[Rfam]
RNA sequence: CACAUCCCCGCGGGAGAGACCGGGCCUGAUCCGUCAGGGCCGGCGCCGAAGGCGCAACCGCCCCGGAAACGCUCAGGCAAAAGGACCGCUUGGGGACU
Number, nucleotide and partner (000 for none) at each position: 001c000002a000003c000004a000005u000006c093007c092008c000009c000010g089011c088012g087013g086014g000015a000016g000017a000018g000019a000020c043021c042022g041023g040024g000025c000026c000027u000028g000029a000030u000031c000032c000033g000034u000035c000036a000037g000038g000039g000040c023041c022042g021043g020044c000045g078046c077047c076048g074049a073050a000051g000052g072053c071054g070055c000056a000057a000058c066059c065060g000061c000062c000063c000064c000065g059066g058067a000068a000069a000070c054071g053072c052073u049074c048075a000076g047077g046078c045079a000080a000081a000082a000083g000084g000085a000086c013087c012088g011089c010090u000091u000092g007093g006094g000095g000096a000097c000098u000
Notes: The record is a 98-nucleotide sequence from Allobosea sp. TND4EK4, which matches "Glycine riboswitch aptamer" in Rfam. The match comes from Rfam's covariance-model search (64 bits). The base pairs follow the family's consensus structure. The organism belongs to Allobosea, within Bacteria.